[Rfam]
RNA sequence: GCUUAUGGUAGAGGUUGCAUUGUUUAUGAGUAACUGCGGGAUAUGUCAGGCAUAGAAGAACGUAGCGAAAGGAAACGGUGCCGAAGUGAUAAUAAACCUGAUUUAUUAUUGCUGGGCAUGUGGUUAAGAACCAUAUGACUGUCAUCAUAUUUUGAUGGAGCGCUGCCUAAAGA
Numbered sequence: 001g002c003u004u005a006u007g008g009u010a011g012a013g014g015u016u017g018c019a020u021u022g023u024u025u026a027u028g029a030g031u032a033a034c035u036g037c038g039g040g041a042u043a044u045g046u047c048a049g050g051c052a053u054a055g056a057a058g059a060a061c062g063u064a065g066c067g068a069a070a071g072g073a074a075a076c077g078g079u080g081c082c083g084a085a086g087u088g089a090u091a092a093u094a095a096a097c098c099u100g101a102u103u104u105a106u107u108a109u110u111g112c113u114g115g116g117c118a119u120g121u122g123g124u125u126a127a128g129a130a131c132c133a134u135a136u137g138a139c140u141g142u143c144a145u146c147a148u149a150u151u152u153u154g155a156u157g158g159a160g161c162g163c164u165g166c167c168u169a170a171a172g173a
Stems, first nucleotide, its partner, number of pairs: 007167005017081009034065005085113012114140002117137008142158006
This 173-nucleotide RNA sequence from Variimorphobacter saccharofermentans belongs to the Rfam family "Lysine riboswitch aptamer". Its family is annotated with lysine biosynthetic process in the Gene Ontology. Pairs were carried over by alignment from the consensus structure, which is taken from published work. Lineage of the source: Bacteria > Bacillati > Clostridia > Lachnospiraceae > Variimorphobacter.